[Rfam]
The record is a 57-nucleotide RNA sequence from Dioscorea zingiberensis, which matches "Plastid-psbA-3 3UTR RNA" in Rfam. The family's RNA type in Rfam is cis-regulatory element. It is one of the family's seed sequences. The literature on the family includes a 2023 paper in Plant Commun by Richter et al., "Retrograde signaling in plants: A critical review focusing on the GUN pathway and beyond". About the family: Plastid psbA-3 is a non-coding RNA (ncRNA) present in plastids.
RNA sequence: AAGGAGCAAUAUCCAAUAUCUUGUUUGAGCAAGAAGUUUGGUAUUGCUCCCCCCUUU
Numbered sequence: 001a002a003g004g005a006g007c008a009a010u011a012u013c014c015a016a017u018a019u020c021u022u023g024u025u026u027g028a029g030c031a032a033g034a035a036g037u038u039u040g041g042u043a044u045u046g047c048u049c050c051c052c053c054c055u056u057u
Base pairs, nucleotide, nucleotide: 003050004049005048006047007046008045009044010043011042012041013040019034020033021032022031023030